[Rfam]
A member of the RNA family "Enterobacteria greA leader" from Pantoea sp. Eser, 114 nucleotides long.
Lineage of the source: Bacteria > Pseudomonadati > Pseudomonadota > Gammaproteobacteria > Pantoea.
It is annotated as a cis-regulatory leader.
RNA sequence: GUCAAUACUACGUCGCUGGACGGUGGAAAGUAAACGAUGACCCGCAGGGAACUCUGGGGUAAAAUACGUAUCAAAUUGCAAAACGGGCUAAUGCGUCGCAGAACGCUUUUUUCU
Numbered sequence: 001g002u003c004a005a006u007a008c009u010a011c012g013u014c015g016c017u018g019g020a021c022g023g024u025g026g027a028a029a030g031u032a033a034a035c036g037a038u039g040a041c042c043c044g045c046a047g048g049g050a051a052c053u054c055u056g057g058g059g060u061a062a063a064a065u066a067c068g069u070a071u072c073a074a075a076u077u078g079c080a081a082a083a084c085g086g087g088c089u090a091a092u093g094c095g096u097c098g099c100a101g102a103a104c105g106c107u108u109u110u111u112u113c114u
Stems, first nucleotide, its partner, number of pairs: 001041003005038002011036002015031002042049002058072004090109002093106004